The record is a 100-nucleotide RNA sequence from Ureibacillus manganicus, which matches "Purine riboswitch aptamer" in Rfam. It scores 81 bits against the family's covariance model.
[Rfam]
RNA sequence: UUACCUUCUUAACAAUUCCCACAUAUAUGCUAGAGAAUAAGGCUCUAGUGUUUCUACCCGGUACCGUAAAUUCCGGACUAUGCGGGAAAGCGAACUUAAC
Numbered sequence: 001u002u003a004c005c006u007u008c009u010u011a012a013c014a015a016u017u018c019c020c021a022c023a024u025a026u027a028u029g030c031u032a033g034a035g036a037a038u039a040a041g042g043c044u045c046u047a048g049u050g051u052u053u054c055u056a057c058c059c060g061g062u063a064c065c066g067u068a069a070a071u072u073c074c075g076g077a078c079u080a081u082g083c084g085g086g087a088a089a090g091c092g093a094a095c096u097u098a099a100c
Base pairs, nucleotide, nucleotide: 018086019085020084022082023081024080025079029049030048031047032046033045034044035043058076059075060074061073063071